Rfam assigns this 93-nucleotide RNA sequence from Triticum aestivum to the family "Small nucleolar RNA R64/Z200 family".
A reference for the family is Galardi et al. (2002), "Purified box C/D snoRNPs are able to reproduce site-specific 2'-O-methylation of target RNA in vitro", Mol Cell Biol.
By type it is a C/D-box small nucleolar RNA.
The family has 14 seed sequences and 748 matches in Rfam 15.1.

RNA sequence: GCAUUGCAUUGAUGAAUUGUGAAUUUUCGCAUGUCAGACUUCAGAGAUACCUCUGGCAUCAAUGAGAAGUCAUUUCAUAUUACUGAGCAAUGA
Number, nucleotide and partner (000 for none) at each position: 001g000002c092003a091004u090005u089006g088007c087008a000009u000010u000011g000012a000013u000014g000015a000016a000017u000018u000019g000020u000021g000022a000023a000024u000025u000026u000027u000028c000029g000030c000031a000032u000033g000034u000035c000036a000037g000038a000039c000040u000041u000042c000043a000044g000045a000046g060047a059048u058049a000050c000051c000052u000053c000054u000055g000056g000057c000058a048059u047060c046061a000062a000063u000064g000065a000066g000067a000068a000069g000070u000071c000072a000073u000074u000075u000076c000077a000078u000079a000080u000081u000082a000083c000084u000085g000086a000087g007088c006089a005090a004091u003092g002093a000

A search with the family's covariance model found it, with a score of 78 bits.